[Rfam]
RNA sequence: UAGUAGAUGCACCCUGAUAACUAAACUCCCCUGGUUGGUUAAUACCGACUGGGUUUUUUUU
Numbered sequence: 001u002a003g004u005a006g007a008u009g010c011a012c013c014c015u016g017a018u019a020a021c022u023a024a025a026c027u028c029c030c031c032u033g034g035u036u037g038g039u040u041a042a043u044a045c046c047g048a049c050u051g052g053g054u055u056u057u058u059u060u061u
Base pairs, nucleotide, nucleotide: 003012004011028053029052032051033050034049035048036047037046038045